This 157-nucleotide sequence from Glycine soja belongs to the Rfam family "MIR4371 microRNA precursor family".
RNA sequence: CCGUUAAAUUAUGACGUGACAGAUGAAGUGUCACUUCAUUACGCCUUAUCACAAAUACCUCAUUAUCACAUCAUCACUUUUAAUAACAUAACAUUGACAUGUCAGUGAUUGAGUGUGAUGCGUGACAUUCCGUUUGUCACGUCAUCACUUAACGGAA
Numbered sequence: 001c002c003g004u005u006a007a008a009u010u011a012u013g014a015c016g017u018g019a020c021a022g023a024u025g026a027a028g029u030g031u032c033a034c035u036u037c038a039u040u041a042c043g044c045c046u047u048a049u050c051a052c053a054a055a056u057a058c059c060u061c062a063u064u065a066u067c068a069c070a071u072c073a074u075c076a077c078u079u080u081u082a083a084u085a086a087c088a089u090a091a092c093a094u095u096g097a098c099a100u101g102u103c104a105g106u107g108a109u110u111g112a113g114u115g116u117g118a119u120g121c122g123u124g125a126c127a128u129u130c131c132g133u134u135u136g137u138c139a140c141g142u143c144a145u146c147a148c149u150u151a152a153c154g155g156a157a
Base pairs, nucleotide, nucleotide: 001155002154003153004152005151006150007149009147011145012144013143014142015141016140017139018138019137020136021135022134023133024132025131027129028128029127030126031125032124033123034122037120038119039118040117041116042115043114044113046111048109049108050107051106052105055102056101057100071086073084074083
The family has 4 seed sequences and 321 matches in Rfam 15.1. The source organism's lineage runs through Eukaryota, Tracheophyta, Mesangiospermae, Glycine and Glycine subgen. Soja.